Description:
Shown here is a 155-nucleotide RNA sequence from Populus trichocarpa, a member of the family "MIR2912 microRNA precursor family". Its family is annotated with miRNA-mediated post-transcriptional gene silencing and RISC complex in the Gene Ontology.

RNA sequence: UCUUGAACUCGAGAUAUGGGCUGAACACUGAACAUUGUCUAGGCUGCAGGACAAAUUCUGAUUUCUCCAUUGUUGCUACCAUUUGAACUCGAAAAUGGCACUUUUAAAUCUUGGACUCUCAUAAAAGUUUUAGACCUAUGUCUUAGCUUUCCAUA
Numbered sequence: 001u002c003u004u005g006a007a008c009u010c011g012a013g014a015u016a017u018g019g020g021c022u023g024a025a026c027a028c029u030g031a032a033c034a035u036u037g038u039c040u041a042g043g044c045u046g047c048a049g050g051a052c053a054a055a056u057u058c059u060g061a062u063u064u065c066u067c068c069a070u071u072g073u074u075g076c077u078a079c080c081a082u083u084u085g086a087a088c089u090c091g092a093a094a095a096u097g098g099c100a101c102u103u104u105u106a107a108a109u110c111u112u113g114g115a116c117u118c119u120c121a122u123a124a125a126a127g128u129u130u131u132a133g134a135c136c137u138a139u140g141u142c143u144u145a146g147c148u149u150u151c152c153a154u155a
Stems, first nucleotide, its partner, number of pairs: 003153001005151003008146002011144010021133005027128003036121002041119003045115001048112004054105002059100002062098002072088003